[Rfam]
RNA sequence: UAAUAGUUAUCGCUGAAUUCCUUGAGCACCAUAGGAAGCGGGGGAACCAACAGGAUUUCGAAUUGAAAUCCAUGGGGUGAAUCCAAAGGUUUGCAUUUCAUUCUUGCAUCUGCAGGAAAUGCAGCCGGAGGUAGGGCGACUCUCACGCCCGAAUCCGACAGCUAACCUCGUAAGCGUACAGAGAGAGGCAAC
Numbered sequence: 001u002a003a004u005a006g007u008u009a010u011c012g013c014u015g016a017a018u019u020c021c022u023u024g025a026g027c028a029c030c031a032u033a034g035g036a037a038g039c040g041g042g043g044g045a046a047c048c049a050a051c052a053g054g055a056u057u058u059c060g061a062a063u064u065g066a067a068a069u070c071c072a073u074g075g076g077g078u079g080a081a082u083c084c085a086a087a088g089g090u091u092u093g094c095a096u097u098u099c100a101u102u103c104u105u106g107c108a109u110c111u112g113c114a115g116g117a118a119a120u121g122c123a124g125c126c127g128g129a130g131g132u133a134g135g136g137c138g139a140c141u142c143u144c145a146c147g148c149c150c151g152a153a154u155c156c157g158a159c160a161g162c163u164a165a166c167c168u169c170g171u172a173a174g175c176g177u178a179c180a181g182a183g184a185g186a187g188g189c190a191a192c
Stems, first nucleotide, its partner, number of pairs: 011176004018037005038171006048074002075156003083131002134150004
The family of this 192-nucleotide RNA sequence from Paenibacillus nasutitermitis is "c-di-AMP riboswitch aptamer (ydaO/yuaA leader)". It scores 89 bits against the family's covariance model. The organism belongs to Paenibacillus, within Bacteria.